[Rfam]
RNA sequence: UGACAUAAUGAUGAUCAACAAGGGACUUAAUACUGAUGUGUGAUGUCACCUUAUCAUUCUGAAUCUC
Numbered sequence: 001u002g003a004c005a006u007a008a009u010g011a012u013g014a015u016c017a018a019c020a021a022g023g024g025a026c027u028u029a030a031u032a033c034u035g036a037u038g039u040g041u042g043a044u045g046u047c048a049c050c051u052u053a054u055c056a057u058u059c060u061g062a063a064u065c066u067c
Stems, first nucleotide, its partner, number of pairs: 002067002005064002
Dot-bracket structure: .((.((........................................................)).))
A member of the RNA family "Small nucleolar RNA SNORD82" from Scophthalmus maximus, 67 nucleotides long. A reference for the family is Galardi et al. (2002), "Purified box C/D snoRNPs are able to reproduce site-specific 2'-O-methylation of target RNA in vitro", Mol Cell Biol. The match comes from Rfam's covariance-model search (44 bits). The family's consensus secondary structure was predicted with PFOLD. snoRNA U82 or Z25 is found in both humans and mice. Gene Ontology terms of the family: nucleolus and RNA processing. It is annotated as a C/D-box small nucleolar RNA.